[Rfam]
RNA sequence: AGGCAUUCUGAAGACCUGUAAACUAGGCUACUGACUGAGAACGUUGUUUCUCCUGUUAAUUCCGCCUAGGGGAAAGUCCCCGGACCCGUGGCAGAGAGUGCCUUGUAUAAUUGCAUGACCCUGUCUGCGUUCUUACAUUAACAGCUAAGAAGUCUUUGAGACCGAGCGGGUGAGAACAGAGAGGGAUCCGUCAAUGUAACGCAGUAACGCAGGUGACGUACGAUUAUUCCAAAUACAUCAACAGAACGGGGCUCACUCCCAGAAUGUC
Numbered sequence: 001a002g003g004c005a006u007u008c009u010g011a012a013g014a015c016c017u018g019u020a021a022a023c024u025a026g027g028c029u030a031c032u033g034a035c036u037g038a039g040a041a042c043g044u045u046g047u048u049u050c051u052c053c054u055g056u057u058a059a060u061u062c063c064g065c066c067u068a069g070g071g072g073a074a075a076g077u078c079c080c081c082g083g084a085c086c087c088g089u090g091g092c093a094g095a096g097a098g099u100g101c102c103u104u105g106u107a108u109a110a111u112u113g114c115a116u117g118a119c120c121c122u123g124u125c126u127g128c129g130u131u132c133u134u135a136c137a138u139u140a141a142c143a144g145c146u147a148a149g150a151a152g153u154c155u156u157u158g159a160g161a162c163c164g165a166g167c168g169g170g171u172g173a174g175a176a177c178a179g180a181g182a183g184g185g186a187u188c189c190g191u192c193a194a195u196g197u198a199a200c201g202c203a204g205u206a207a208c209g210c211a212g213g214u215g216a217c218g219u220a221c222g223a224u225u226a227u228u229c230c231a232a233a234u235a236c237a238u239c240a241a242c243a244g245a246a247c248g249g250g251g252c253u254c255a256c257u258c259c260c261a262g263a264a265u266g267u268c
Stems, first nucleotide, its partner, number of pairs: 002268009014214006023069006037052005075253002078251004090102004104115004119185003125181002129177006142169001144167002152162004216238001218236003
Dot-bracket structure: .(((((((((...((((((...((((((........(((((......)))))...........)))))).....[[.[[[[........((((.....)))).((((....))))...(((...((..((((((.......(.((......((((...))))...)).)..))))))..)).))).......................)))))).(.(((.............))).).........]]]]]]......)))))))))
The record is a 268-nucleotide sequence from Acipenser ruthenus, which matches "RNase MRP" in Rfam. The base pairs follow the family's consensus structure, which is taken from published work. Its family is annotated with rRNA processing, ribonuclease MRP activity and ribonuclease MRP complex in the Gene Ontology. Rfam describes the family as follows. RNase MRP is an enzymatically active ribonucleoprotein with two distinct roles in eukaryotes. NCBI's taxonomy places the organism under Eukaryota, Eumetazoa, Deuterostomia, Acipenseriformes, Acipenser. It scores 151 bits against the family's covariance model. It is annotated as a ribozyme.